This 89-nucleotide RNA from Leptobrachium leishanense belongs to the Rfam family "Small nucleolar RNA SNORD60".
For this family Rfam cites "Purified box C/D snoRNPs are able to reproduce site-specific 2'-O-methylation of target RNA in vitro" (Galardi et al., Mol Cell Biol, 2002).
A search with the family's covariance model found it, with a score of 50 bits.
Lineage of the source: Eukaryota > Opisthokonta > Craniata > Megophryidae > Leptobrachium.
By type it is a C/D-box small nucleolar RNA.
RNA sequence: GACUCGGGAUGAUAUCUCUUUAAAAUUUCUGACACCUCGUAUGAGCGCUGCUCGAGCGGCGCCUGAUCUCUCUGCGUAUCUGAAGAUCU
Numbered sequence: 001g002a003c004u005c006g007g008g009a010u011g012a013u014a015u016c017u018c019u020u021u022a023a024a025a026u027u028u029c030u031g032a033c034a035c036c037u038c039g040u041a042u043g044a045g046c047g048c049u050g051c052u053c054g055a056g057c058g059g060c061g062c063c064u065g066a067u068c069u070c071u072c073u074g075c076g077u078a079u080c081u082g083a084a085g086a087u088c089u
Base pairs, nucleotide, nucleotide: 001088002087003085004084047060048059049058050057051056